[Rfam]
The record is a 247-nucleotide RNA sequence from Cettia cetti, which matches "Small nucleolar RNA SNORD17" in Rfam. The family has 19 seed sequences and 1,015 matches in Rfam 15.1. Rfam describes the family as follows. The snoRNA HBI-43 belongs to the C/D family of snoRNAs, guiding 2'O-ribose methylation at position U3797 of the 28S rRNA. Pseudouridylation in position U3797 is predicted to be guided by the H/ACA snoRNA ACA48. Rfam classes the family as a C/D-box small nucleolar RNA. The match comes from Rfam's covariance-model search (94 bits).
Nucleotides: 247
Base pairs, nucleotide, nucleotide: 010246011245012244017239018238026230027229028228030225031224034221035220039184040183042181044175045174046173047172048171049170050169051168052167053166054165055164056163057162061088063086064085066082069079070078071077093160094159095158096157097156098155106146111140112139113138114137115136117134119133120132121131122130123129124128186219187218188216191213192212193211195209196208197207198206
Number, partner (000 for none) and nucleotide at each position: 001000g002000u003000g004000a005000g006000g007000u008000g009000a010246u011245g012244a013000c014000a015000c016000a017239g018238u019000u020000u021000a022000u023000c024000c025000a026230u027229u028228c029000u030225c031224u032000g033000a034221g035220u036000g037000c038000a039184g040183u041000g042181g043000a044175g045174c046173u047172g048171c049170c050169c051168u052167c053166c054165u055164g056163c057162a058000g059000c060000a061088c062000c063086c064085c065000a066082g067000c068000u069079c070078c071077u072000g073000u074000u075000c076000u077071a078070g079069g080000c081000u082066c083000u084000g085064g086063g087000u088061g089000c090000u091000g092000u093160g094159c095158a096157g097156c098155c099000u100000c101000c102000a103000g104000a105000c106146a107000u108000c109000c110000u111140g112139c113138a114137g115136c116000g117134u118000g119133c120132c121131a122130g123129u124128g125000u126000g127000c128124u129123g130122c131121u132120g133119g134117a135000g136115g137114c138113u139112g140111c141000u142000g143000u144000g145000c146106u147000g148000u149000g150000u151000g152000g153000c154000u155098g156097g157096c158095u159094g160093c161000c162057u163056g164055c165054a166053g167052g168051a169050g170049g171048g172047c173046a174045g175044c176000a177000a178000u179000g180000c181042u182000g183040g184039c185000a186219g187218g188216g189000u190000u191213g192212g193211a194000g195209c196208c197207c198206c199000u200000c201000u202000u203000u204000u205000g206198g207197g208196g209195g210000c211193u212192c213191c214000c215000u216188c217000c218187u219186c220035a221034c222000u223000g224031g225030g226000a227000c228028g229027a230026g231000c232000c233000a234000u235000g236000c237000u238018g239017u240000c241000u242000g243000a244012u245011c246010a247000c